[Rfam]
RNA sequence: UGCAGCCUUGUCAAAUUUGGUGUUUCCUCCUCAGUGGACGGCACUGGCCAAAAUGGCUGCAACAGUGAAUUUGUAGUCCAUGGGCCCCAUGUUCCUGUAUAUAGUGGGUACUGGGGAUAGAAGGGCUAUGUACAAAU
Numbered sequence: 001u002g003c004a005g006c007c008u009u010g011u012c013a014a015a016u017u018u019g020g021u022g023u024u025u026c027c028u029c030c031u032c033a034g035u036g037g038a039c040g041g042c043a044c045u046g047g048c049c050a051a052a053a054u055g056g057c058u059g060c061a062a063c064a065g066u067g068a069a070u071u072u073g074u075a076g077u078c079c080a081u082g083g084g085c086c087c088c089a090u091g092u093u094c095c096u097g098u099a100u101a102u103a104g105u106g107g108g109u110a111c112u113g114g115g116g117a118u119a120g121a122a123g124g125g126c127u128a129u130g131u132a133c134a135a136a137u
Stems, first nucleotide, its partner, number of pairs: 002060004018046007025038003073129006085116005